[Rfam]
RNA sequence: UUAGUAGUGAUGCUAUGGGCGGAGGAAGUGGUGUGGAAAAAUCUUCGAGGUUACGAAAAGAAAUUUGAUGAGGCUGAAUGGUGGACAAGGUUGCAGAACAAACCAAGUCCAAAAGGUAAACGUAAAACCAAGACAGUAAAUCAAAAACCUGUGAAGAUAAAAAGGAUGU
Numbered sequence: 001u002u003a004g005u006a007g008u009g010a011u012g013c014u015a016u017g018g019g020c021g022g023a024g025g026a027a028g029u030g031g032u033g034u035g036g037a038a039a040a041a042u043c044u045u046c047g048a049g050g051u052u053a054c055g056a057a058a059a060g061a062a063a064u065u066u067g068a069u070g071a072g073g074c075u076g077a078a079u080g081g082u083g084g085a086c087a088a089g090g091u092u093g094c095a096g097a098a099c100a101a102a103c104c105a106a107g108u109c110c111a112a113a114a115g116g117u118a119a120a121c122g123u124a125a126a127a128c129c130a131a132g133a134c135a136g137u138a139a140a141u142c143a144a145a146a147a148c149c150u151g152u153g154a155a156g157a158u159a160a161a162a163a164g165g166a167u168g169u
Base pairs, nucleotide, nucleotide: 002015003014004013005012006011031167032166042157043156044155045154046153047152048150049149050148051147052146064145065144066143067142068141073137074136075135079130080129081128082127083110084109085108086107089104090103091102092101
Record summary: Shown here is a 169-nucleotide RNA from Thomasclavelia ramosa, a member of the family "Group II catalytic intron D1-D4-3". On this family, see Bonen and Vogel, Trends Genet 2001: "The ins and outs of group II introns". NCBI's taxonomy places the organism under Bacteria, Bacillati, Erysipelotrichales, Coprobacillaceae, Thomasclavelia ramosa.